Rfam assigns this 177-nucleotide RNA from Tepidibacillus sp. HK-1 to the family "Lysine riboswitch aptamer".
RNA sequence: GGUAAGUAUAGAGGUGCGGUUACUUAAGAGUAAGAUUAUCUUCAAUAGGGCUUUGGGUAAUCUGAAAGGAAGAACCGCCGAAGUGUAUAACUUUAGCCCAAAGGGUUAUAUGCUGGUUCUGCAUAAAAUAUAUGUAGAACUGUCACAAAAUGUAUUUUGUGGAGAGCUAUCUGCCAA
Numbered sequence: 001g002g003u004a005a006g007u008a009u010a011g012a013g014g015u016g017c018g019g020u021u022a023c024u025u026a027a028g029a030g031u032a033a034g035a036u037u038a039u040c041u042u043c044a045a046u047a048g049g050g051c052u053u054u055g056g057g058u059a060a061u062c063u064g065a066a067a068g069g070a071a072g073a074a075c076c077g078c079c080g081a082a083g084u085g086u087a088u089a090a091c092u093u094u095a096g097c098c099c100a101a102a103g104g105g106u107u108a109u110a111u112g113c114u115g116g117u118u119c120u121g122c123a124u125a126a127a128a129u130a131u132a133u134g135u136a137g138a139a140c141u142g143u144c145a146c147a148a149a150a151u152g153u154a155u156u157u158u159g160u161g162g163a164g165a166g167c168u169a170u171c172u173g174c175c176a177a
Base pairs, nucleotide, nucleotide: 006172008170009169010168011167016078017077018076019075020074021073023072024071025070033063034062035061036060037059038058039057040056082114083113084112085111086110087109088108089107090106091105092104093103115141116140117139118138119137120136121135122134123133124132125131143162144161145160146159147158148157149156

From the family's description: Riboswitches are metabolite binding domains within certain messenger RNAs that serve as precision sensors for their corresponding targets.